[Rfam]
RNA sequence: GUGCCUUAAACUAAUGAGUAAGGAAAAAUGCAAGCCUUGGUGACGCUUGGCUUCGCCUAUAAUGGUUAGUUUGAAUUUUUGUACAGGCACAGGUCGUCCUCUAGAGUGAUUUGCCUACUUUUGCAAAUCGUUCGAGUGAUAGCGAUCUGCCUG
Numbered sequence: 001g002u003g004c005c006u007u008a009a010a011c012u013a014a015u016g017a018g019u020a021a022g023g024a025a026a027a028a029u030g031c032a033a034g035c036c037u038u039g040g041u042g043a044c045g046c047u048u049g050g051c052u053u054c055g056c057c058u059a060u061a062a063u064g065g066u067u068a069g070u071u072u073g074a075a076u077u078u079u080u081g082u083a084c085a086g087g088c089a090c091a092g093g094u095c096g097u098c099c100u101c102u103a104g105a106g107u108g109a110u111u112u113g114c115c116u117a118c119u120u121u122u123g124c125a126a127a128u129c130g131u132u133c134g135a136g137u138g139a140u141a142g143c144g145a146u147c148u149g150c151c152u153g
Base pairs, nucleotide, nucleotide: 004023005022006021007020008019032053033052034051035050036049039046057069058068059067084153085152086151087150088149091148092147093146094145095144096143097142101136102135104133105132106131107130108129110127111126112125113124114123